[Rfam]
RNA sequence: CAACAAUUGAUACUAACUGAGCUAUCUAUAGCCUAGUCUUGUGACAGAGGCUUGUGGUAUGUUGUGCUAGCUGGGUUGAAAAAGUGAACAAUUAAAUCAAAAGCCAUAAGUCUUUUAAGUCCAGUGUGUAAAGACACAUUUUGGUUAUAACUCAGAGGCACAACU
Numbered sequence: 001c002a003a004c005a006a007u008u009g010a011u012a013c014u015a016a017c018u019g020a021g022c023u024a025u026c027u028a029u030a031g032c033c034u035a036g037u038c039u040u041g042u043g044a045c046a047g048a049g050g051c052u053u054g055u056g057g058u059a060u061g062u063u064g065u066g067c068u069a070g071c072u073g074g075g076u077u078g079a080a081a082a083a084g085u086g087a088a089c090a091a092u093u094a095a096a097u098c099a100a101a102a103g104c105c106a107u108a109a110g111u112c113u114u115u116u117a118a119g120u121c122c123a124g125u126g127u128g129u130a131a132a133g134a135c136a137c138a139u140u141u142u143g144g145u146u147a148u149a150a151c152u153c154a155g156a157g158g159c160a161c162a163a164c165u
Stems, first nucleotide, its partner, number of pairs: 004086002007083002015077004020072005026066001027061004032056001033054001035052006103159003124139006140156004144151002

Notes:
Shown here is a 165-nucleotide RNA sequence from Nannospalax galili, a member of the family "Small Cajal body specific RNA 1". NCBI's taxonomy places the organism under Eukaryota, Teleostomi, Euteleostomi, Dipnotetrapodomorpha, Nannospalax. It scores 144 bits against the family's covariance model. Its family is annotated with Cajal body, RNA processing and nucleolus in the Gene Ontology. Rfam's curators write: scaRNAs are a specific class of small nuclear RNAs which localise to the Cajal bodies and guide the modification of RNA polymerase II transcribed spliceosomal RNAs U1, U2, U4, U5 and U12. ACA35 belong to the H/ACA box class of guide RNAs as it has the predicted hairpin-hinge-hairpin-tail structure, conserved H/ACA-box motifs and is found associated with GAR1. It is predicted to guide pseudouridylation of the U2 spliceosomal snRNA at residue U89. Rfam classes the family as a small Cajal body RNA. The family has 29 seed sequences and 715 matches in Rfam 15.1. Pairs were carried over by alignment from the consensus structure, which was predicted with RNAalifold. A reference for the family is Darzacq et al. (2002), "Cajal body-specific small nuclear RNAs: a novel class of 2'-O-methylation and pseudouridylation guide RNAs", EMBO J.